This 144-nucleotide RNA sequence from Jacana jacana belongs to the Rfam family "Small Cajal body specific RNA 11". The literature on the family includes a 2002 paper in EMBO J by Darzacq et al., "Cajal body-specific small nuclear RNAs: a novel class of 2'-O-methylation and pseudouridylation guide RNAs".
[Rfam]
RNA sequence: GCGUCCUGACCUCAUCCUGGCUGUUUUCCCCAUCACCAGAACCGUGGUGGUGGGGCCUGGAGGUGGACGCAGAUCAACCUUGCCUCUCGUGUUAGGAGGGCUGCCAAAGACAUGUGCAAGCUCUUAAAGGCAAGAGAGGACACC
Numbered sequence: 001g002c003g004u005c006c007u008g009a010c011c012u013c014a015u016c017c018u019g020g021c022u023g024u025u026u027u028c029c030c031c032a033u034c035a036c037c038a039g040a041a042c043c044g045u046g047g048u049g050g051u052g053g054g055g056c057c058u059g060g061a062g063g064u065g066g067a068c069g070c071a072g073a074u075c076a077a078c079c080u081u082g083c084c085u086c087u088c089g090u091g092u093u094a095g096g097a098g099g100g101c102u103g104c105c106a107a108a109g110a111c112a113u114g115u116g117c118a119a120g121c122u123c124u125u126a127a128a129g130g131c132a133a134g135a136g137a138g139g140a141c142a143c144c
Stems, first nucleotide, its partner, number of pairs: 002069005010062001028055002031052006083139006092129002096125007103117002105114002